[Rfam]
RNA sequence: AAAGCAGCAUGAAAGUGCGUGCUAGUCAUGUAAUAUGGCGACACUGUCAAAUUGCGGGGACUUCCUAAAGCCUUCAUCACCAAGCCGUCAUGGAAACAUAGAUGGUGGCCGAGCUAAUAGCCCUGGGUAUGGUAAAAGUAUGAAGGAUGCUACAAUGGAUAAUCCGCAGCCAAGUCCUAACGAGCGUCAUGCUCCAUGGAUGCAGUUCAACGACUAGACGGCAGUGGGUGCUACUCGCAAGAGUAGUGCUUAAGAUAUAGUCUAAACCAGGGCGAGAGCCUAUG
Numbered sequence: 001a002a003a004g005c006a007g008c009a010u011g012a013a014a015g016u017g018c019g020u021g022c023u024a025g026u027c028a029u030g031u032a033a034u035a036u037g038g039c040g041a042c043a044c045u046g047u048c049a050a051a052u053u054g055c056g057g058g059g060a061c062u063u064c065c066u067a068a069a070g071c072c073u074u075c076a077u078c079a080c081c082a083a084g085c086c087g088u089c090a091u092g093g094a095a096a097c098a099u100a101g102a103u104g105g106u107g108g109c110c111g112a113g114c115u116a117a118u119a120g121c122c123c124u125g126g127g128u129a130u131g132g133u134a135a136a137a138g139u140a141u142g143a144a145g146g147a148u149g150c151u152a153c154a155a156u157g158g159a160u161a162a163u164c165c166g167c168a169g170c171c172a173a174g175u176c177c178u179a180a181c182g183a184g185c186g187u188c189a190u191g192c193u194c195c196a197u198g199g200a201u202g203c204a205g206u207u208c209a210a211c212g213a214c215u216a217g218a219c220g221g222c223a224g225u226g227g228g229u230g231c232u233a234c235u236c237g238c239a240a241g242a243g244u245a246g247u248g249c250u251u252a253a254g255a256u257a258u259a260g261u262c263u264a265a266a267c268c269a270g271g272g273c274g275a276g277a278g279c280c281u282a283u284g
Base pairs, nucleotide, nucleotide: 042226043225044224045223046222048220053168054167055166056165057164058163063159064158065157169206170205174201175200176199177198182194183193184192185191186190210263212262213261214260215259216258228249229248230247231246232245233244234243235242236241270281271280272279273278
Group I catalytic intron: a 284-nucleotide sequence from Marchantia polymorpha. A reference for the family is Cate et al. (1996), "Crystal structure of a group I ribozyme domain: principles of RNA packing", Science. A search with the family's covariance model found it, with a score of 94 bits. About the family: Group I catalytic introns are large self-splicing ribozymes. Lineage of the source: Eukaryota > Marchantiophyta > Marchantiidae > Marchantiales > Marchantia polymorpha.